RNA sequence: CCACUCGAAAUGGCUCUAAGGCCAGCCUGACUGGAGAUAGGUGGCGGGGUAGAGCACUAAUUGGGUGUUUAGGGGGAGAAAUCCCUCGGCAUCCUGUAAAACUCCGAACCCGUUACCGUCGUAGAAGGUUGGAGUGAGGGGCGCGGGGUAAGCCUGUGUCCCGAAAGAGGAACAACUCAGACUAAGGUUAAGGUCCCUAAAUGCCGGAUAAGUAUAAGGGGGUCUUUGGCCCCAGACAAUGGGAAGGUGGGCUUAGAAGCAGCCACCCUUUAACGAGUUCGUAACAGAUCACCCAUCGAGGUCAAAGGCACCGAAAAUGGACGGGAUUUAAGCCGGCUACCGAUACCUUAGAACACGUAUUAUAUAUGUGAUUGUGUAGAGUGGCGUCCUGUUAGGGCGGAAGCGGGGGCGUGAGCUCCUGUGGACCUUUCAGGAAUGCGGAU
Numbered sequence: 001c002c003a004c005u006c007g008a009a010a011u012g013g014c015u016c017u018a019a020g021g022c023c024a025g026c027c028u029g030a031c032u033g034g035a036g037a038u039a040g041g042u043g044g045c046g047g048g049g050u051a052g053a054g055c056a057c058u059a060a061u062u063g064g065g066u067g068u069u070u071a072g073g074g075g076g077a078g079a080a081a082u083c084c085c086u087c088g089g090c091a092u093c094c095u096g097u098a099a100a101a102c103u104c105c106g107a108a109c110c111c112g113u114u115a116c117c118g119u120c121g122u123a124g125a126a127g128g129u130u131g132g133a134g135u136g137a138g139g140g141g142c143g144c145g146g147g148g149u150a151a152g153c154c155u156g157u158g159u160c161c162c163g164a165a166a167g168a169g170g171a172a173c174a175a176c177u178c179a180g181a182c183u184a185a186g187g188u189u190a191a192g193g194u195c196c197c198u199a200a201a202u203g204c205c206g207g208a209u210a211a212g213u214a215u216a217a218g219g220g221g222g223u224c225u226u227u228g229g230c231c232c233c234a235g236a237c238a239a240u241g242g243g244a245a246g247g248u249g250g251g252c253u254u255a256g257a258a259g260c261a262g263c264c265a266c267c268c269u270u271u272a273a274c275g276a277g278u279u280c281g282u283a284a285c286a287g288a289u290c291a292c293c294c295a296u297c298g299a300g301g302u303c304a305a306a307g308g309c310a311c312c313g314a315a316a317a318u319g320g321a322c323g324g325g326a327u328u329u330a331a332g333c334c335g336g337c338u339a340c341c342g343a344u345a346c347c348u349u350a351g352a353a354c355a356c357g358u359a360u361u362a363u364a365u366a367u368g369u370g371a372u373u374g375u376g377u378a379g380a381g382u383g384g385c386g387u388c389c390u391g392u393u394a395g396g397g398c399g400g401a402a403g404c405g406g407g408g409g410c411g412u413g414a415g416c417u418c419c420u421g422u423g424g425a426c427c428u429u430u431c432a433g434g435a436a437u438g439c440g441g442a443u
Stems, first nucleotide, its partner, number of pairs: 001384006011024005026134001027132006036120003040117008052105001053103002060097002063094006072087006138162009167178003182351007192341003201338001203337005218312002222309010239296005245269003250264003275290001279288002353373001354370005385438001387435005394428003403422008

The record is a 443-nucleotide part of an RNA from Methanobacterium alkalithermotolerans, which matches "Archaeal large subunit ribosomal RNA" in Rfam. Taxonomically the source falls in Methanobacterium (Archaea, Methanobacteriati, Methanobacteriota, Methanobacteria). Its family is annotated with structural constituent of ribosome and ribosome in the Gene Ontology. The base pairs follow the family's consensus structure, which is taken from published work.